Rfam assigns this 303-nucleotide RNA sequence from Imtechella halotolerans to the family "Bacterial RNase P class A". The base pairs follow the family's consensus structure, which is taken from published work.
RNA sequence: AGAGCAAAUCGGCUUAUCGCUAUGUCUUGCAUAGAGGAAAGUCCGGACACCAUAGAGCAGUAUAGCGGGUAACGCCCGUCCGUCGUGAGACGAGGACAAGUGCAACAGAAAGGAUGUACAGGUAAUGCUGUAGUGAAAUCAGGUAAACUCUAUACGGUGCAACGCCAUGUAUACCGACGUUUGAGGGCUGCUCGCUCGAUGUUGGAGGGUAGGCGGUUUGAAUGAUUCAGUAAUGAAUUAUCUAGAUAAAUGAUAAGCACCACCUUGGGUGGGACAGAAUCCGGCUUAUGAUUUGCUCUUUUU
Numbered sequence: 001a002g003a004g005c006a007a008a009u010c011g012g013c014u015u016a017u018c019g020c021u022a023u024g025u026c027u028u029g030c031a032u033a034g035a036g037g038a039a040a041g042u043c044c045g046g047a048c049a050c051c052a053u054a055g056a057g058c059a060g061u062a063u064a065g066c067g068g069g070u071a072a073c074g075c076c077c078g079u080c081c082g083u084c085g086u087g088a089g090a091c092g093a094g095g096a097c098a099a100g101u102g103c104a105a106c107a108g109a110a111a112g113g114a115u116g117u118a119c120a121g122g123u124a125a126u127g128c129u130g131u132a133g134u135g136a137a138a139u140c141a142g143g144u145a146a147a148c149u150c151u152a153u154a155c156g157g158u159g160c161a162a163c164g165c166c167a168u169g170u171a172u173a174c175c176g177a178c179g180u181u182u183g184a185g186g187g188c189u190g191c192u193c194g195c196u197c198g199a200u201g202u203u204g205g206a207g208g209g210u211a212g213g214c215g216g217u218u219u220g221a222a223u224g225a226u227u228c229a230g231u232a233a234u235g236a237a238u239u240a241u242c243u244a245g246a247u248a249a250a251u252g253a254u255a256a257g258c259a260c261c262a263c264c265u266u267g268g269g270u271g272g273g274a275c276a277g278a279a280u281c282c283g284g285c286u287u288a289u290g291a292u293u294u295g296c297u298c299u300u301u302u303u
Stems, first nucleotide, its partner, number of pairs: 001299011012258007020034006039287003043284005048159004055193004060155005065079005080094001081092004095150002100148002102144002163215004174205005185197004222241008
A search with the family's covariance model found it, with a score of 212 bits. The organism belongs to Imtechella halotolerans, within Bacteria. Rfam classes the family as a ribozyme.